Record summary
Rfam assigns this 56-nucleotide sequence from Neomesorhizobium albiziae to the family "terC RNA". Taxonomically the source falls in Neomesorhizobium (Bacteria, Pseudomonadota, Hyphomicrobiales, Phyllobacteriaceae). By type it is a cis-regulatory element.
[Rfam]
RNA sequence: CUACCAGGCCGGGCCCCUCUGGCAAUCCCUAGGGAUUGUGAUGUCGGACUGGGAAU
Numbered sequence: 001c002u003a004c005c006a007g008g009c010c011g012g013g014c015c016c017c018u019c020u021g022g023c024a025a026u027c028c029c030u031a032g033g034g035a036u037u038g039u040g041a042u043g044u045c046g047g048a049c050u051g052g053g054a055a056u
Stems, first nucleotide, its partner, number of pairs: 006050002009047004022039007